[Rfam]
Overview:
c-di-AMP riboswitch aptamer (ydaO/yuaA leader): a 178-nucleotide RNA from Blastococcus tunisiensis.

RNA sequence: GUCCGGACGCCGCCGAACCCUCGCCGGUGCACGUGCACCGGCACCCGGACCGGGGACCCAUCGCACUCCCGGGGUGAAGCUCCCGACGGUCUGCCGCACCAGUAGCAGACCAUCGUGGGCCGGGCGACUUCCCGCCCGAACCCGUCAGCUAACUCGGUAGGCGGCCGUGGAAGAAGGG
Numbered sequence: 001g002u003c004c005g006g007a008c009g010c011c012g013c014c015g016a017a018c019c020c021u022c023g024c025c026g027g028u029g030c031a032c033g034u035g036c037a038c039c040g041g042c043a044c045c046c047g048g049a050c051c052g053g054g055g056a057c058c059c060a061u062c063g064c065a066c067u068c069c070c071g072g073g074g075u076g077a078a079g080c081u082c083c084c085g086a087c088g089g090u091c092u093g094c095c096g097c098a099c100c101a102g103u104a105g106c107a108g109a110c111c112a113u114c115g116u117g118g119g120c121c122g123g124g125c126g127a128c129u130u131c132c133c134g135c136c137c138g139a140a141c142c143c144g145u146c147a148g149c150u151a152a153c154u155c156g157g158u159a160g161g162c163g164g165c166c167g168u169g170g171a172a173g174a175a176g177g178g
Stems, first nucleotide, its partner, number of pairs: 011163004018048002049158006059071001072143003080119003122137004